Source information: A member of the RNA family "Mammalian CPEB3 ribozyme" from Crocodylus porosus, 76 nucleotides long. The match comes from Rfam's covariance-model search (43 bits). Rfam links the family to the GO term RNA nuclease activity.
RNA sequence: ACUGCAAUUUCUAGGCCAUGGCAAAAGCAGUCACAGACUGGCCAUGUCAGAUUCUAAAGAAUCUGUGAAUUCUGCU
Numbered sequence: 001a002c003u004g005c006a007a008u009u010u011c012u013a014g015g016c017c018a019u020g021g022c023a024a025a026a027g028c029a030g031u032c033a034c035a036g037a038c039u040g041g042c043c044a045u046g047u048c049a050g051a052u053u054c055u056a057a058a059g060a061a062u063c064u065g066u067g068a069a070u071u072c073u074g075c076u
Stems, first nucleotide, its partner, number of pairs: 014043004020076004025071002027039001048065007